[Rfam]
RNA sequence: CGCCUGCCGGGCAGCGGGACGGAGCUCGACCGCCCGUUCCGCAGAUGACCGCUUUUAUUGAACAGCAACGCGAUGCUUUUGGGGUCGAGCCGAUCUGCUGUGUUUUGCAGAUUGCCCCA
Number, nucleotide and partner (000 for none) at each position: 001c000002g000003c000004c000005u000006g000007c000008c000009g000010g000011g000012c000013a000014g000015c000016g034017g033018g000019a000020c032021g031022g030023a000024g000025c000026u000027c000028g000029a000030c022031c021032g020033c017034c016035c000036g000037u000038u000039c000040c000041g000042c000043a000044g000045a000046u000047g000048a000049c000050c000051g000052c000053u000054u000055u000056u000057a000058u000059u000060g000061a000062a000063c000064a000065g000066c000067a000068a000069c000070g000071c000072g000073a000074u000075g000076c000077u000078u000079u000080u119081g118082g117083g116084g115085u000086c000087g000088a000089g000090c000091c114092g113093a000094u111095c110096u109097g108098c107099u000100g105101u000102g000103u000104u000105u100106u000107g098108c097109a096110g095111a094112u000113u092114g091115c084116c083117c082118c081119a080